[Rfam]
This 97-nucleotide RNA sequence from Microlunatus phosphovorus belongs to the Rfam family "Bacterial small signal recognition particle RNA". Lineage of the source: Bacteria > Actinomycetes > Propionibacteriales > Propionibacteriaceae > Microlunatus phosphovorus. The signal recognition particle (SRP) is a universally conserved ribonucleoprotein involved in the co-translational targeting of proteins to membranes. On this family, see Rosenblad et al., Nucleic Acids Res 2003: "SRPDB: Signal Recognition Particle Database". Gene Ontology terms of the family: SRP-dependent cotranslational protein targeting to membrane, signal sequence recognition and signal recognition particle, plasma membrane targeting. The base pairs follow the family's consensus structure, which is taken from published work. Rfam classes the family as a non-coding RNA gene.
Nucleotides: 097
Base pairs, nucleotide, nucleotide: 004091005090006089007088008087009086010085011084012083013082014081015078018076019075020074022072024068025067026066027065028064035060036059037058043052044051045050
Number, partner (000 for none) and nucleotide at each position: 001000g002000c003000c004091g005090g006089u007088c008087c009086c010085c011084c012083g013082c014081g015078u016000g017000g018076c019075g020074a021000u022072a023000u024068c025067u026066c027065g028064c029000c030000c031000a032000a033000u034000c035060c036059c037058c038000c039000c040000a041000g042000g043052g044051c045050c046000g047000g048000a049000a050045g051044g052043c053000a054000g055000c056000a057000a058037g059036g060035g061000u062000a063000a064028g065027u066026g067025a068024g069000c070000u071000c072022u073000u074020u075019c076018g077000g078015g079000u080000g081014c082013g083012c084011g085010g086009g087008g088007g089006a090005c091004u092000u093000c094000u095000a096000u097000g